Nucleotides: 151
Base pairs, nucleotide, nucleotide: 003149004148005147006146007145008144009143010142017029018028019027031131032130033120034119035068036067037066038065063118064117072095073094100116101115102114103113104112122134123133124132
Number, partner (000 for none) and nucleotide at each position: 001000a002000a003149a004148u005147u006146c007145u008144u009143u010142u011000g012000g013000g014000g015000c016000a017029g018028g019027g020000u021000g022000u023000a024000a025000u026000u027019c028018c029017c030000g031131a032130c033120c034119g035068a036067c037066g038065g039000u040000g041000a042000g043000a044000g045000g046000u047000a048000g049000c050000c051000g052000c053000u054000a055000u056000a057000c058000c059000u060000c061000a062000a063118g064117u065038c066037c067036g068035u069000g070000a071000c072095c073094c074000g075000g076000a077000u078000c079000a080000g081000c082000u083000u084000g085000c086000g087000c088000u089000g090000a091000g092000a093000a094073g095072g096000u097000g098000g099000a100116u101115u102114u103113g104112g105000u106000g107000a108000g109000a110000u111000u112104c113103c114102a115101a116100a117064g118063c119034c120033g121000a122134c123133a124132g125000u126000u127000a128000a129000a130032g131031u132124c133123u134122g135000g136000a137000u138000g139000a140000g141000a142010a143009a144008a145007a146006g147005a148004a149003u150000g151000g

A member of the RNA family "FMN riboswitch aptamer (RFN element)" from Amphibacillus marinus, 151 nucleotides long. It scores 112 bits against the family's covariance model. NCBI's taxonomy places the organism under Bacteria, Bacilli, Caryophanales, Bacillaceae, Amphibacillus. Rfam links the family to the GO term FMN binding.